[Rfam]
Shown here is a 275-nucleotide RNA from Hibiscus trionum, a member of the family "RNase MRP". A search with the family's covariance model found it, with a score of 88 bits.
RNA sequence: CAACUACGAGAUGAAGUGAAUGGGUCACACAGAUAGUGUAAUUUACGCGGUCUGACCCAGGAAAGUCCCCGGGCCCAAACCUGCAGAGAUGCAGACCCGGAAACGGGUAAUCUCCAUAUCGGUGAGGUCUGAUCUUUGUCCAAAAGGCAGAGGCGGGGCUGAGACAGGUGUGGAGCCUCAAUGACCUCAUCGCUGGAGCAACUUGGCCGAAUUCACACAGUUAUUCACUUGCUCCAAACCUGGACUAACUGAACGGGGCUUACUAUCUCGUAGUU
Numbered sequence: 001c002a003a004c005u006a007c008g009a010g011a012u013g014a015a016g017u018g019a020a021u022g023g024g025u026c027a028c029a030c031a032g033a034u035a036g037u038g039u040a041a042u043u044u045a046c047g048c049g050g051u052c053u054g055a056c057c058c059a060g061g062a063a064a065g066u067c068c069c070c071g072g073g074c075c076c077a078a079a080c081c082u083g084c085a086g087a088g089a090u091g092c093a094g095a096c097c098c099g100g101a102a103a104c105g106g107g108u109a110a111u112c113u114c115c116a117u118a119u120c121g122g123u124g125a126g127g128u129c130u131g132a133u134c135u136u137u138g139u140c141c142a143a144a145a146g147g148c149a150g151a152g153g154c155g156g157g158g159c160u161g162a163g164a165c166a167g168g169u170g171u172g173g174a175g176c177c178u179c180a181a182u183g184a185c186c187u188c189a190u191c192g193c194u195g196g197a198g199c200a201a202c203u204u205g206g207c208c209g210a211a212u213u214c215a216c217a218c219a220g221u222u223a224u225u226c227a228c229u230u231g232c233u234c235c236a237a238a239c240c241u242g243g244a245c246u247a248a249c250u251g252a253a254c255g256g257g258g259c260u261u262a263c264u265a266u267c268u269c270g271u272a273g274u275u
Base pairs, nucleotide, nucleotide: 002275003274004273005272006271007270008269009268010267011266014230015229016228017227018226019225021059022058023057024056025055026054027053036048037047038046039045040044063261064260065259067258068257069256070255082093083092084091085090095108096107097106098105099104120192121191122190123189124188125187133184134183136181145178146177147176148175164171165170233244234243235242236241
Dot-bracket structure: .((((((((((..((((((.(((((((........(((((...)))))....)))))))...[[[.[[[[...........((((....)))).(((((....)))))...........((((((.......((.(........((((...............((....))...))))..).))..))))))................................))))))..((((....))))..........]]]]]]]....))))))))))

About this RNA
RNase MRP is an enzymatically active ribonucleoprotein with two distinct roles in eukaryotes. In mitochondria it plays a direct role in the initiation of mitochondrial DNA replication.